[Rfam]
A member of the RNA family "Guanidine-II riboswitch aptamer (mini-ykkC)" from Klebsiella sp. RIT-PI-d, 45 nucleotides long. From the family's description: Simpler in structure and has fewer highly conserved nucleotide positions than the ykkC-yxkD leader. Despite this each of its two stem-loop structures directly bind free guanidine.
RNA sequence: CUUAUGGGACGACCCAUAAGCGCUUUCUACAAUGGGGACGGCCCC
Numbered sequence: 001c002u003u004a005u006g007g008g009a010c011g012a013c014c015c016a017u018a019a020g021c022g023c024u025u026u027c028u029a030c031a032a033u034g035g036g037g038a039c040g041g042c043c044c045c
Stems, first nucleotide, its partner, number of pairs: 001020008034045004
A search with the family's covariance model found it, with a score of 44 bits.